Record summary
The record is a 215-nucleotide RNA from Burkholderia glumae, which matches "Proteobacterial sRNA psRNA2" in Rfam. The family has 7 seed sequences and 122 matches in Rfam 15.1. Pairs were carried over by alignment from the consensus structure. For this family Rfam cites "Computational prediction and transcriptional analysis of sRNAs in Nitrosomonas europaea" (Gvakharia et al., FEMS Microbiol Lett, 2010). NCBI's taxonomy places the organism under Bacteria, Pseudomonadati, Pseudomonadota, Betaproteobacteria, Burkholderia glumae. It is annotated as a small RNA.

Nucleotides: 215
Stems, first nucleotide, its partner, number of pairs: 001067003005063003009060002014025004027058009037048002069213002075166003081159002091106001092104005109153003114149001184207003190204002192201002
Number, partner (000 for none) and nucleotide at each position: 001067g002066g003065g004000c005063u006062a007061c008000u009060c010059c011000u012000u013000g014025g015024c016023g017022c018000u019000u020000g021000c022017g023016c024015g025014c026000u027058g028057u029056u030055u031054u032053g033052a034051u035050g036000a037048a038047g039000a040000u041000u042000c043000g044000c045000a046000c047038c048037u049000c050035u051034a052033u053032c054031a055030a056029a057028a058027c059010g060009g061007g062006u063005a064000a065003c066002c067001c068000c069213g070212c071000c072000u073000c074000u075166u076165g077164g078000c079000a080000a081159g082158g083000c084000c085000u086000u087000a088000c089000u090000g091106u092104c093103a094102g095101a096100u097000c098000a099000a100096g101095u102094c103093u104092g105000a106091a107000g108000u109153u110152c111151u112000a113000c114149a115000c116000a117000u118000u119000a120000c121000a122000g123000c124000u125000c126000g127000c128000c129000g130000a131000g132000g133000a134000a135000g136000u137000a138000a139000a140000c141000c142000g143000c144000c145000c146000c147000u148000c149114u150000c151111g152110g153109g154000u155000g156000u157000u158082u159081u160000u161000g162000a163000a164077c165076c166075g167000g168000c169000c170000u171000c172000u173000u174000a175000u176000c177000g178000a179000a180000a181000a182000c183000c184207g185206c186205u187000g188000g189000u190204a191203g192201c193200c194000c195000g196000c197000c198000g199000a200193g201192g202000c203191u204190u205186g206185g207184c208000g209000c210000u211000c212070g213069c214000u215000u